RNA sequence: UUACUAAUUAAGGGGCAACUCUUAACUGGCCAAUUGGAGAAAAGCCGAGAGGUACAAUUCCAGGGGGCAGAAAGCUUCACAAAGCAUCGCUGAACAUGUGGAGCGGGAGGCAUGGCGGUAGCGCAUCAACGACGUGCCAA
Numbered sequence: 001u002u003a004c005u006a007a008u009u010a011a012g013g014g015g016c017a018a019c020u021c022u023u024a025a026c027u028g029g030c031c032a033a034u035u036g037g038a039g040a041a042a043a044g045c046c047g048a049g050a051g052g053u054a055c056a057a058u059u060c061c062a063g064g065g066g067g068c069a070g071a072a073a074g075c076u077u078c079a080c081a082a083a084g085c086a087u088c089g090c091u092g093a094a095c096a097u098g099u100g101g102a103g104c105g106g107g108a109g110g111c112a113u114g115g116c117g118g119u120a121g122c123g124c125a126u127c128a129a130c131g132a133c134g135u136g137c138c139a140a
Stems, first nucleotide, its partner, number of pairs: 008025007026070003030067002034063005044053003074104008088123004109138006116131002
RNA: IMES-2 RNA motif